[Rfam]
Nucleotides: 130
Base pairs, nucleotide, nucleotide: 005049006048007047011038012037014035015034016033017032064123065122066121067120068119069118070117071116078112079111080110081109082108083107084106
Number, partner (000 for none) and nucleotide at each position: 001000a002000a003000a004000a005049a006048a007047g008000c009000a010000g011038g012037g013000g014035u015034c016033u017032g018000u019000u020000g021000c022000u023000u024000a025000a026000u027000g028000u029000g030000a031000g032017c033016a034015g035014g036000c037012c038011u039000c040000u041000c042000g043000u044000a045000a046000c047007c048006u049005u050000c051000a052000g053000g054000g055000a056000u057000a058000u059000a060000a061000u062000a063000a064123c065122c066121a067120u068119u069118g070117u071116u072000c073000u074000u075000g076000g077000g078112u079111g080110a081109a082108c083107c084106u085000c086000u087000g088000u089000u090000c091000u092000u093000u094000a095000u096000u097000u098000g099000u100000g101000a102000u103000u104000g105000a106084a107083g108082g109081u110080u111079c112078a113000g114000u115000a116071a117070a118069u119068g120067a121066u122065g123064g124000a125000a126000c127000a128000u129000g130000c